The family of this 104-nucleotide RNA sequence from Populus tomentosa is "MIR2275 microRNA precursor family".
A search with the family's covariance model found it, with a score of 63 bits.
Its family is annotated with RISC complex and miRNA-mediated post-transcriptional gene silencing in the Gene Ontology.
[Rfam]
RNA sequence: AUCUUGGAUGUGAGAAUUGGAGAAAACUAAAGCAUUUGUGGAGACCAUAUGGUUUAAUUGCUCCCCAAAUGGUUUAAUUUUCUCCAAUAUCUCAUUUCCAAAUG
Numbered sequence: 001a002u003c004u005u006g007g008a009u010g011u012g013a014g015a016a017u018u019g020g021a022g023a024a025a026a027c028u029a030a031a032g033c034a035u036u037u038g039u040g041g042a043g044a045c046c047a048u049a050u051g052g053u054u055u056a057a058u059u060g061c062u063c064c065c066c067a068a069a070u071g072g073u074u075u076a077a078u079u080u081u082c083u084c085c086a087a088u089a090u091c092u093c094a095u096u097u098c099c100a101a102a103u104g
Stems, first nucleotide, its partner, number of pairs: 004101005011094004016088006023081004028076003033071006